[Rfam]
RNA: Bacterial RNase P class A
RNA sequence: UGAGUAUGCCGGAUGAUCGCGGGCACAAAUGCCGAAAGGCUGUGUCUGAGGAAAGUCCGAGCUCCGCAGGGCAGGGUGCUGGGUAAUACCCAGUGGAGGCGACUCCAAGGAAAGUGCCACAGAGACAUACCGCCGAUGGCGACAGGUUCGCACAGGCAAGGGUGGAAAGGUGAGGUAAGAGCUCACCAGCAGCCAGGUGACUGGCUGGCUCGGUAAACCCCACCUGGAGCAAGACCGAAUAGAGGAGCAAUGGAACUGCCCGUUCCGCUCCCGGGUUAGGUCGCUUGAGGUGCCAGGUAACUGGCAUCCCAGAUAGAUGAUCAUCGCUCCGCAAGGAGUACAGAACUCGGCUUACAGGCAAACUCUUGUG
Numbered sequence: 001u002g003a004g005u006a007u008g009c010c011g012g013a014u015g016a017u018c019g020c021g022g023g024c025a026c027a028a029a030u031g032c033c034g035a036a037a038g039g040c041u042g043u044g045u046c047u048g049a050g051g052a053a054a055g056u057c058c059g060a061g062c063u064c065c066g067c068a069g070g071g072c073a074g075g076g077u078g079c080u081g082g083g084u085a086a087u088a089c090c091c092a093g094u095g096g097a098g099g100c101g102a103c104u105c106c107a108a109g110g111a112a113a114g115u116g117c118c119a120c121a122g123a124g125a126c127a128u129a130c131c132g133c134c135g136a137u138g139g140c141g142a143c144a145g146g147u148u149c150g151c152a153c154a155g156g157c158a159a160g161g162g163u164g165g166a167a168a169g170g171u172g173a174g175g176u177a178a179g180a181g182c183u184c185a186c187c188a189g190c191a192g193c194c195a196g197g198u199g200a201c202u203g204g205c206u207g208g209c210u211c212g213g214u215a216a217a218c219c220c221c222a223c224c225u226g227g228a229g230c231a232a233g234a235c236c237g238a239a240u241a242g243a244g245g246a247g248c249a250a251u252g253g254a255a256c257u258g259c260c261c262g263u264u265c266c267g268c269u270c271c272c273g274g275g276u277u278a279g280g281u282c283g284c285u286u287g288a289g290g291u292g293c294c295a296g297g298u299a300a301c302u303g304g305c306a307u308c309c310c311a312g313a314u315a316g317a318u319g320a321u322c323a324u325c326g327c328u329c330c331g332c333a334a335g336g337a338g339u340a341c342a343g344a345a346c347u348c349g350g351c352u353u354a355c356a357g358g359c360a361a362a363c364u365c366u367u368g369u370g
Base pairs, nucleotide, nucleotide: 002365003364004363005362007360008359009358010357011355012325013324014323015322016321017320018319020048021047022046023045024044025043026042027041053353054352055351057350058349059348060347061346062229063228064227065226069261070260071259072258074225075224076223077222078221079093080092081091082090083089094108095106096105097104098103109220110219114218115217116214117213118212130161131160132157133156134155137152138151169187170186171185172184173183174182189209190207191206192205193204194203195202196201233282234281235280236279244271245270246269247268248267252266253265254264255263256262289308290307291306292305293304294303295302296301